[Rfam]
Source information: A member of the RNA family "mir-7911 microRNA precursor family" from Panagrellus redivivus, 63 nucleotides long. It is one of the family's seed sequences.

RNA sequence: GCCCCCCGGAUGAUGCACCAUCGAUUGAAGCUGACGAUAUCGAUGGGCCUUGGCCAGGGGUUG
Numbered sequence: 001g002c003c004c005c006c007c008g009g010a011u012g013a014u015g016c017a018c019c020a021u022c023g024a025u026u027g028a029a030g031c032u033g034a035c036g037a038u039a040u041c042g043a044u045g046g047g048c049c050u051u052g053g054c055c056a057g058g059g060g061u062u063g
Base pairs, nucleotide, nucleotide: 003060004059005058006057008055009054011052012051013050015048016047018045021042023041024040025039

Background
Taxonomically the source falls in Panagrellus (Eukaryota, Opisthokonta, Eumetazoa, Panagrolaimidae). The base pairs follow the family's consensus structure, which was predicted with RNAalifold.